[Rfam]
A member of the RNA family "Ascomycota telomerase RNA" from Neurospora crassa, 211 nucleotides of a longer RNA. On this family, see Qi et al., Nucleic Acids Res 2013: "The common ancestral core of vertebrate and fungal telomerase RNAs". By type it is a non-coding RNA gene. Its family is annotated with telomere maintenance via telomerase, telomerase catalytic core complex and telomerase activity in the Gene Ontology.
RNA sequence: AACCAUGUUUGUUCAAAUCUUCGGUCCGCAAGGAGAGAAGCUCUUUGGCAAACACCUUCCUUUCAACUGGGGUGCGCUGAAAAGUUCACUUCCGGGAGAGAGAUGAUAGCACGGUUUUUGAGGACGCAUUUUGUCCGUGCGGUAAUGCCCUCCUUUACACUUUCUCGCAUGGUGCGGGAGUGUGGAGAGGAAACAAAAGCUAGUCUCAGUU
Numbered sequence: 001a002a003c004c005a006u007g008u009u010u011g012u013u014c015a016a017a018u019c020u021u022c023g024g025u026c027c028g029c030a031a032g033g034a035g036a037g038a039a040g041c042u043c044u045u046u047g048g049c050a051a052a053c054a055c056c057u058u059c060c061u062u063u064c065a066a067c068u069g070g071g072g073u074g075c076g077c078u079g080a081a082a083a084g085u086u087c088a089c090u091u092c093c094g095g096g097a098g099a100g101a102g103a104u105g106a107u108a109g110c111a112c113g114g115u116u117u118u119u120g121a122g123g124a125c126g127c128a129u130u131u132u133g134u135c136c137g138u139g140c141g142g143u144a145a146u147g148c149c150c151u152c153c154u155u156u157a158c159a160c161u162u163u164c165u166c167g168c169a170u171g172g173u174g175c176g177g178g179a180g181u182g183u184g185g186a187g188a189g190g191a192a193a194c195a196a197a198a199g200c201u202a203g204u205c206u207c208a209g210u211u
Stems, first nucleotide, its partner, number of pairs: 006054003014047004019040004025034003058106002060102005067095004071090004078083001123205003126200002129198006148190002150187004157183004163179007
The base pairs follow the family's consensus structure.